[Rfam]
RNA sequence: UCGGGGUGUCGCGACUGGCGUUGAGGUGGGCAAACCACCGGGGAGCGACCCGACUACGGCAUUCGACCGCGCGCCUGGGCCGAUGUG
Numbered sequence: 001u002c003g004g005g006g007u008g009u010c011g012c013g014a015c016u017g018g019c020g021u022u023g024a025g026g027u028g029g030g031c032a033a034a035c036c037a038c039c040g041g042g043g044a045g046c047g048a049c050c051c052g053a054c055u056a057c058g059g060c061a062u063u064c065g066a067c068c069g070c071g072c073g074c075c076u077g078g079g080c081c082g083a084u085g086u087g
Stems, first nucleotide, its partner, number of pairs: 003054001006051001008049005015042002017075005026038004064082002067079002
Notes:
Rfam assigns this 87-nucleotide RNA to the family "ZMP/ZTP riboswitch aptamer (pfl RNA motif)". Its family is annotated with regulation of purine nucleotide biosynthetic process and one-carbon metabolic process in the Gene Ontology. A search with the family's covariance model found it, with a score of 54 bits.